The record is a 294-nucleotide RNA from Solanum commersonii, which matches "Plant signal recognition particle RNA" in Rfam. The organism belongs to Solanum, within Eukaryota. By type it is a non-coding RNA gene. A search with the family's covariance model found it, with a score of 252 bits.
[Rfam]
RNA sequence: GCUGAGCUUAGUAAUGUGGGCUUGUAACCCAAAUGGGGGCAUUAAUGUGGUGGAAUGUUGGGCUGUCCCAGAUGGUUGGGCUUGGUGAGCUAAUUUCUGGCUUGCCCUAUCCAAGCUCAGAGUUGGAUCACGUGGCCCAAUUGAAGAAAUGGGCUGCUUGAUUCCUAAAGUGGGGUGGAUCGCGUGAGGCUGGUUUCACAGAGCAACGAACAGCUCCCGCUCUGUGCAGUGGAAGGAUAACGAGCCAGUGCUCUCCAAGGCCUGAUGGGCUGCUUCAAUUAAACCACCAUUUUU
Dot-bracket structure: ((((((((((......)))))))....(((....))))))...((.(((((((..((((((((.((.(((.......((.(((((.(((.((....((((((((.((..((((.((.((((((.((((((.((((((((.((....)).)))))))).))))))(....).(((((......(((....(((......)))....)))....))))).)))))).))..)))).))....))))))))))))).))))).))...))))).))).))).))..))))))).)).